The family of this 116-nucleotide RNA sequence from Oceanodroma tethys is "U5 spliceosomal RNA".
For this family Rfam cites "The spliceosomal snRNAs of Caenorhabditis elegans" (Thomas et al., Nucleic Acids Res, 1990).
The organism belongs to Oceanodroma, within Eukaryota.
RNA sequence: AUACUCUGGUUUUUCUUCGAGGUGGGUAAAUCUUUUACGUUUUACUGAAGAUUUCCGUGGAGAGAAACAGGCGCGAGUGUUGAGGAUUUUUUUUAAGGCUCUGCUGUGACAGAGCU
Numbered sequence: 001a002u003a004c005u006c007u008g009g010u011u012u013u014u015c016u017u018c019g020a021g022g023u024g025g026g027u028a029a030a031u032c033u034u035u036u037a038c039g040u041u042u043u044a045c046u047g048a049a050g051a052u053u054u055c056c057g058u059g060g061a062g063a064g065a066a067a068c069a070g071g072c073g074c075g076a077g078u079g080u081u082g083a084g085g086a087u088u089u090u091u092u093u094u095a096a097g098g099c100u101c102u103g104c105u106g107u108g109a110c111a112g113a114g115c116u
Base pairs, nucleotide, nucleotide: 003078004077005076006075009068010067011066012065013064014063015062016061017060018059019058028054029053030052031051032050033049034048035047096116098115099114100113101112102111103110